[Rfam]
Nucleotides: 372
Base pairs, nucleotide, nucleotide: 001368002367003366004365005364006363007362008361009360011357013317014316015315016314017313018312019311021040022039023038024037025036026035027034028033045355046354047353049352050351051350052349053348054226055225056224065251067222068221069220071219072218073087074086075085076084077083088102089100090099091098092097103217104216108215109214110211111210112209124158125157126154127153128152133148134147135146136145137144138143166184167183168182169181170180171179186206187204188203189202190201191200192199193198230274231273232272233271234265235264236263237262238261239260245259246258247257248256249255281300282299283298284297285296286295287294288293
Number, partner (000 for none) and nucleotide at each position: 001368a002367g003366g004365a005364g006363u007362u008361g009360g010000u011357g012000c013317g014316g015315u016314g017313g018312u019311c020000g021040c022039g023038g024037g025036c026035c027034g028033g029000g030000c031000a032000a033028c034027c035026g036025g037024c038023c039022u040021g041000a042000g043000g044000a045355a046354a047353g048000u049352c050351c051350g052349g053348g054226c055225u056224c057000c058000c059000c060000a061000a062000c063000g064000a065251g066000c067222g068221g069220a070000u071219u072218g073087c074086u075085g076084g077083g078000u079000a080000a081000c082000g083077c084076c085075c086074a087073g088102u089100g090099c091098g092097c093000g094000c095000g096000a097092g098091c099090g100089u101000g102088a103217g104216g105000a106000u107000a108215g109214u110211g111210c112209c113000a114000c115000a116000g117000a118000a119000a120000c121000a122000u123000a124158c125157c126154g127153c128152c129000g130000a131000u132000g133148g134147g135146g136145g137144c138143g139000c140000u141000u142000g143138c144137g145136c146135c147134c148133c149000g150000c151000a152128g153127g154126u155000a156000a157125g158124g159000g160000u161000g162000c163000a164000a165000a166184g167183g168182u169181g170180c171179g172000g173000u174000a175000a176000g177000a178000g179171c180170g181169c182168a183167c184166c185000a186206g187204c188203g189202g190201c191200a192199u193198c194000g195000a196000g197000a198193g199192g200191u201190g202189c203188c204187g205000g206186c207000u208000c209112g210111g211110u212000a213000a214109a215108c216104c217103c218072c219071g220069u221068c222067c223000u224056g225055a226054g227000c228000a229000a230274g231273g232272c233271g234265g235264g236263g237262g238261a239260c240000a241000c242000g243000u244000g245259g246258g247257u248256u249255g250000c251065u252000c253000g254000u255249u256248g257247a258246c259245c260239g261238u262237c263236c264235c265234c266000c267000a268000a269000c270000a271233c272232g273231c274230c275000g276000c277000u278000u279000g280000a281300g282299g283298c284297g285296c286295c287294g288293g289000g290000c291000a292000a293288c294287c295286g296285g297284c298283g299282u300281c301000c302000c303000a304000g305000a306000u307000a308000g309000a310000u311019g312018a313017c314016c315015g316014c317013c318000c319000c320000g321000c322000c323000g324000c325000g326000g327000c328000u329000c330000u331000g332000c333000u334000g335000c336000g337000g338000u339000g340000g341000a342000a343000c344000a345000g346000a347000a348053c349052c350051c351050g352049g353047c354046u355045u356000a357011c358000g359000u360009c361008c362007g363006g364005c365004u366003c367002c368001u369000c370000c371000a372000c
A member of the RNA family "Bacterial RNase P class A" from Gloeobacter violaceus, 372 nucleotides long.
The sequence is in the family's curated seed alignment.
Pairs were carried over by alignment from the consensus structure, which is taken from published work.
Rfam classes the family as a ribozyme.
The organism belongs to Gloeobacter violaceus, within Bacteria.